[Rfam]
RNA sequence: AGGCUGUGAUGAUAGACAACAUUUCUCGAUUCUGAUCAGGACCAAAGAAAAUUUGUUGCUCCUUGAUGACAGUAUUUGUGCGUGUCUGAGCCUU
Numbered sequence: 001a002g003g004c005u006g007u008g009a010u011g012a013u014a015g016a017c018a019a020c021a022u023u024u025c026u027c028g029a030u031u032c033u034g035a036u037c038a039g040g041a042c043c044a045a046a047g048a049a050a051a052u053u054u055g056u057u058g059c060u061c062c063u064u065g066a067u068g069a070c071a072g073u074a075u076u077u078g079u080g081c082g083u084g085u086c087u088g089a090g091c092c093u094u
Base pairs, nucleotide, nucleotide: 001093002092003091004090